[Rfam]
RNA: MIR1120/MIR1122 microRNA precursor family
RNA sequence: CCACUCCCUCUGUAAACUAAUAUAAGAGCAUUUAGAUCACCAAAGUAGUGAUCUAAACGCUCUUAUAUUAGUUUACGGAGGAAGUAU
Numbered sequence: 001c002c003a004c005u006c007c008c009u010c011u012g013u014a015a016a017c018u019a020a021u022a023u024a025a026g027a028g029c030a031u032u033u034a035g036a037u038c039a040c041c042a043a044a045g046u047a048g049u050g051a052u053c054u055a056a057a058c059g060c061u062c063u064u065a066u067a068u069u070a071g072u073u074u075a076c077g078g079a080g081g082a083a084g085u086a087u
Stems, first nucleotide, its partner, number of pairs: 003085003007081005013075005019069011031057010